[Rfam]
RNA sequence: AGCCUUCUGAAUCCGUGCUCCGAUUUCGUCACACACCAGACCACAAAAGCUGAUGAGAUUCCCAAGAUAAGUGAAGCG
Numbered sequence: 001a002g003c004c005u006u007c008u009g010a011a012u013c014c015g016u017g018c019u020c021c022g023a024u025u026u027c028g029u030c031a032c033a034c035a036c037c038a039g040a041c042c043a044c045a046a047a048a049g050c051u052g053a054u055g056a057g058a059u060u061c062c063c064a065a066g067a068u069a070a071g072u073g074a075a076g077c078g
Stems, first nucleotide, its partner, number of pairs: 002077002005074002008071001011068003016064002022059001024058007

Annotation
Shown here is a 78-nucleotide RNA sequence from Schistosoma margrebowiei, a member of the family "mir-3492 microRNA precursor family". Rfam links the family to the GO terms RISC complex and miRNA-mediated post-transcriptional gene silencing. NCBI's taxonomy places the organism under Eukaryota, Opisthokonta, Spiralia, Platyhelminthes, Schistosoma.